This 93-nucleotide RNA sequence from Anopheles stephensi belongs to the Rfam family "mir-275 microRNA precursor family".
A search with the family's covariance model found it, with a score of 73 bits.
RNA sequence: AACCGUUUAAUGACACGCGCUAAGCAGGAACCGGGACUUGAUACACAUUCGCUAACAGUCAGGUACCUGAAGUAGCGCGCGUUAUUCGGCUCA
Numbered sequence: 001a002a003c004c005g006u007u008u009a010a011u012g013a014c015a016c017g018c019g020c021u022a023a024g025c026a027g028g029a030a031c032c033g034g035g036a037c038u039u040g041a042u043a044c045a046c047a048u049u050c051g052c053u054a055a056c057a058g059u060c061a062g063g064u065a066c067c068u069g070a071a072g073u074a075g076c077g078c079g080c081g082u083u084a085u086u087c088g089g090c091u092c093a
Base pairs, nucleotide, nucleotide: 009086010085011084012083014081016079017078018077019076020075021074022073030064031063032062035060036059037058038057
The literature on the family includes a 2010 paper in Genome Biol Evol by Marco et al., "Functional shifts in insect microRNA evolution".